[Rfam]
RNA sequence: UGACCUCAAAUCAGGUAGGACUACCCGCUGAACUUAAGCAUAUCAAUAAGCGGAGGAAAAGAAACUAACAAGGAUUCCCCUAGUAACGGCGAGUGAACCGGGAAGAGCUCAAAUUUGAAAUCUGGCGUCCUUCGGGCGUCCGAGUUGUAAUCUAUAGAGGCGUUUUCCGUGCCGGACCGUGUCCAAGUCCCUUGGAACAGGGUAUCAAAGAGGGUGACAAUCCCGUACUUGACACGACUACCGGUGCUCUGUGAUACGUCUUCUACGAGUCGAGUUGUUUGGGAAUGCAGCUCAAAACGGGUGGUAAACUCCAUCUAAAGCUAAAUAUUGGUGGGAGACCGAUAGCGAACAAGUACCGUGAGGGAAAGAUGAAAAGCACUUUGGAAAGAGAGUUAAACAGUAUGUGAAAUUGUUGAAAGGGAAA
Numbered sequence: 001u002g003a004c005c006u007c008a009a010a011u012c013a014g015g016u017a018g019g020a021c022u023a024c025c026c027g028c029u030g031a032a033c034u035u036a037a038g039c040a041u042a043u044c045a046a047u048a049a050g051c052g053g054a055g056g057a058a059a060a061g062a063a064a065c066u067a068a069c070a071a072g073g074a075u076u077c078c079c080c081u082a083g084u085a086a087c088g089g090c091g092a093g094u095g096a097a098c099c100g101g102g103a104a105g106a107g108c109u110c111a112a113a114u115u116u117g118a119a120a121u122c123u124g125g126c127g128u129c130c131u132u133c134g135g136g137c138g139u140c141c142g143a144g145u146u147g148u149a150a151u152c153u154a155u156a157g158a159g160g161c162g163u164u165u166u167c168c169g170u171g172c173c174g175g176a177c178c179g180u181g182u183c184c185a186a187g188u189c190c191c192u193u194g195g196a197a198c199a200g201g202g203u204a205u206c207a208a209a210g211a212g213g214g215u216g217a218c219a220a221u222c223c224c225g226u227a228c229u230u231g232a233c234a235c236g237a238c239u240a241c242c243g244g245u246g247c248u249c250u251g252u253g254a255u256a257c258g259u260c261u262u263c264u265a266c267g268a269g270u271c272g273a274g275u276u277g278u279u280u281g282g283g284a285a286u287g288c289a290g291c292u293c294a295a296a297a298c299g300g301g302u303g304g305u306a307a308a309c310u311c312c313a314u315c316u317a318a319a320g321c322u323a324a325a326u327a328u329u330g331g332u333g334g335g336a337g338a339c340c341g342a343u344a345g346c347g348a349a350c351a352a353g354u355a356c357c358g359u360g361a362g363g364g365a366a367a368g369a370u371g372a373a374a375a376g377c378a379c380u381u382u383g384g385a386a387a388g389a390g391a392g393u394u395a396a397a398c399a400g401u402a403u404g405u406g407a408a409a410u411u412g413u414u415g416a417a418a419g420g421g422a423a424a
Stems, first nucleotide, its partner, number of pairs: 024055001025053005035042002065072002076103004086094002106322004113151003118146002121143002124140004157263002159260004164256001166254002169247007178236006187203001189202004206210001213223002272293007299316005356363002379390004
Dot-bracket structure: .......................((((((.....((....))......))))).).........((....))...((((......((.....)).....))))..((((...(((..((.((.((((.........)))).)).))..))).....((((((.(.((.(((((((..((((((...(.((((......)))))..(...)..((.......)).......))))))....))))))).....)).))))).))........(((((((........))))))).....(((((........)))))..)))).................................((....))...............((((....))))..................................

Shown here is a 424-nucleotide part of an RNA from Kwoniella shandongensis, a member of the family "Eukaryotic large subunit ribosomal RNA". The source organism's lineage runs through Eukaryota, Basidiomycota, Tremellomycetes, Tremellales and Kwoniella. The match comes from Rfam's covariance-model search (3394 bits).